The family of this 95-nucleotide RNA sequence from Campylobacter ureolyticus is "Selenocysteine transfer RNA".
The organism belongs to Campylobacter ureolyticus, within Bacteria.
On this family, see Mizutani and Goto, FEBS Lett 2000: "Eukaryotic selenocysteine tRNA has the 9/4 secondary structure".
RNA sequence: UGGAGAGUAAAACGAUCUGGCGGCGUUCACGGACUUCAAAUCCGAUGACGGAGCAGUUGACUGUUUCGUGGGAGGUUCGAUUCCUUCACUCUCUC
Dot-bracket structure: .(((((((..((((..(....).))))..((((.......))))...(((((((........)))))))..((((.......)))).))))))).
Numbered sequence: 001u002g003g004a005g006a007g008u009a010a011a012a013c014g015a016u017c018u019g020g021c022g023g024c025g026u027u028c029a030c031g032g033a034c035u036u037c038a039a040a041u042c043c044g045a046u047g048a049c050g051g052a053g054c055a056g057u058u059g060a061c062u063g064u065u066u067c068g069u070g071g072g073a074g075g076u077u078c079g080a081u082u083c084c085u086u087c088a089c090u091c092u093c094u095c
Stems, first nucleotide, its partner, number of pairs: 002094007011027004017022001030044004048069007072086004